[Rfam]
RNA: Alphaproteobacterial sRNA ar45
Organism: Methylovirgula sp. 4M-Z18
RNA sequence: GCCCAAUUUCGCACGUGCCUGUGGUCGUGUGUCGGUUGGCGGGGAUCCGGACAAGAGGCCGGUUAACCGCCAGAUCAAAACCGGCAGCCGGAGGCGAACCGGCGAACCCCGCCAAACGGGGGACGCGACUUAAAGCAACGACGGACCGGGCUUUU
Numbered sequence: 001g002c003c004c005a006a007u008u009u010c011g012c013a014c015g016u017g018c019c020u021g022u023g024g025u026c027g028u029g030u031g032u033c034g035g036u037u038g039g040c041g042g043g044g045a046u047c048c049g050g051a052c053a054a055g056a057g058g059c060c061g062g063u064u065a066a067c068c069g070c071c072a073g074a075u076c077a078a079a080a081c082c083g084g085c086a087g088c089c090g091g092a093g094g095c096g097a098a099c100c101g102g103c104g105a106a107c108c109c110c111g112c113c114a115a116a117c118g119g120g121g122g123a124c125g126c127g128a129c130u131u132a133a134a135g136c137a138a139c140g141a142c143g144g145a146c147c148g149g150g151c152u153u154u155u
Base pairs, nucleotide, nucleotide: 001151002150003149004148009141010140011139016137017136018135023130024129025128026127027126038071039070040069041068042067047062048061049060050059081102082101083100084099103125107121108120109119110118111117